[Rfam]
RNA sequence: AAUACCGUGAGGUAUUGUGGGGAGGAAGCUGCUAGUAAAGCUAUGAGCCGAUGGGCAGAAACAUCAUACAAGGCUUAGCCUGGAGGCGAGGUGGCCAAGGGCACCGAAGCGGGUUGAUCUAACAGGUAGAGUCAAUGAUGCAGUUGUGUAGUGAAAGUUCACCUU
Numbered sequence: 001a002a003u004a005c006c007g008u009g010a011g012g013u014a015u016u017g018u019g020g021g022g023a024g025g026a027a028g029c030u031g032c033u034a035g036u037a038a039a040g041c042u043a044u045g046a047g048c049c050g051a052u053g054g055g056c057a058g059a060a061a062c063a064u065c066a067u068a069c070a071a072g073g074c075u076u077a078g079c080c081u082g083g084a085g086g087c088g089a090g091g092u093g094g095c096c097a098a099g100g101g102c103a104c105c106g107a108a109g110c111g112g113g114u115u116g117a118u119c120u121a122a123c124a125g126g127u128a129g130a131g132u133c134a135a136u137g138a139u140g141c142a143g144u145u146g147u148g149u150a151g152u153g154a155a156a157g158u159u160c161a162c163c164u165u
Base pairs, nucleotide, nucleotide: 001016002015003014004013005012006011028165031162035158036157040152041151042150043149044148045147046145047144048143050141062140063139064138065137066136067135073132074131075130078127079126080125081124082123086110087109090105091104092103093102
A member of the RNA family "Group II catalytic intron D1-D4-3" from Microbulbifer sp. THAF38, 165 nucleotides long. NCBI's taxonomy places the organism under Bacteria, Pseudomonadati, Gammaproteobacteria, Microbulbiferaceae, Microbulbifer. Pairs were carried over by alignment from the consensus structure. The match comes from Rfam's covariance-model search (101 bits).